[Rfam]
RNA sequence: GGGGCUGAUCGGUUUCGACAGCGCCUGUGAUGCUGCGGGAAGCGGGCCGAGGAUGCAGGGUUAUCUCGUAAACGAUCUCUGCGAACCAAUAGUUGCCGAUGCAAAGCGCAACGACUUCGCCCUCGCUGCCUAAGCGAGCUCGAUAGUCCGUCAGACCGUAGGCGAUCCCGCUACGGACCCUGGCGUCAUCUAGGGAUCUAGCUGUGUGACGGGGUCUCGACGUCACAUGGGACUCUUCUGAGACUGGGCUCGUCGACUUAGGUGUCUGUGACAAAGGUCGGAGCCGAGCAGAACGUCUCUACAGACUGCGCCCGGAGAAGACGCAGUAUUGCAGCGUUGGACGGGGGUUCGAUUCCCCCCAGCUCCACGA
Dot-bracket structure: (((((((...........((((((......(((((((.....((((([[[[[.(((((((...]]]]]........)))))))..................................((..(((((.......)))))..))......((((((.((((.(..[[[[[[.).))))...)))))).......]]]]]]...(((((((((..[[[[[[...))))))))).........]]]]]].[[[[[..[[[....[..(((((((.].....]]]]]]]]..............)))))))...))))).......))))))).....))))))...(((((.......))))))))))))....
RNA: transfer-messenger RNA